This 72-nucleotide RNA from Cephalotus follicularis belongs to the Rfam family "Small nucleolar RNA Z105". Rfam links the family to the GO terms RNA processing and nucleolus. Rfam classes the family as a C/D-box small nucleolar RNA. The family has 11 seed sequences and 621 matches in Rfam 15.1.

[Rfam]
RNA sequence: CUGGCACGAUGAGGAUGAAAGAUUUACAGUCUGAUUCAUUUGAUGAUUCGAAUCACCUCCUACUCAUUCUGA
Numbered sequence: 001c002u003g004g005c006a007c008g009a010u011g012a013g014g015a016u017g018a019a020a021g022a023u024u025u026a027c028a029g030u031c032u033g034a035u036u037c038a039u040u041u042g043a044u045g046a047u048u049c050g051a052a053u054c055a056c057c058u059c060c061u062a063c064u065c066a067u068u069c070u071g072a
Stems, first nucleotide, its partner, number of pairs: 006067001008065002028047001031042001
Dot-bracket structure: .....(.((..................(..(..........)....)................)).).....